[Rfam]
RNA sequence: UUCUUAUCAAGAGUCAGGGGAGGAACUGGUCCUACGAUCCUGCGGCAACCGUUACAAUGAUGUAACAAGGUGCUAAUUCCAGCAAGCAAAUGCUUGAAAGAUGAGAU
Numbered sequence: 001u002u003c004u005u006a007u008c009a010a011g012a013g014u015c016a017g018g019g020g021a022g023g024a025a026c027u028g029g030u031c032c033u034a035c036g037a038u039c040c041u042g043c044g045g046c047a048a049c050c051g052u053u054a055c056a057a058u059g060a061u062g063u064a065a066c067a068a069g070g071u072g073c074u075a076a077u078u079c080c081a082g083c084a085a086g087c088a089a090a091u092g093c094u095u096g097a098a099a100g101a102u103g104a105g106a107u
Base pairs, nucleotide, nucleotide: 002106003105004104005103006102007101008100013043015042016041017040018039022032023031024030026082027081028080029079044074045073046072047071049070050069051066052065053064054063078099083096084095085094086093087092
The record is a 107-nucleotide RNA from Oceanobacillus profundus, which matches "SAM riboswitch aptamer (S box leader)" in Rfam.
Rfam describes the family as follows. The SAM riboswitch is found upstream of a number of genes which code for proteins involved in methionine or cysteine biosynthesis in Gram-positive bacteria. The SAM riboswitch acts at the level of transcription termination control. The predicted structure consists of a complex stem-loop region followed by a single stem loop terminator region.
NCBI's taxonomy places the organism under Bacteria, Bacillota, Bacilli, Caryophanales, Oceanobacillus.
A search with the family's covariance model found it, with a score of 88 bits.
The family's consensus secondary structure is taken from published work.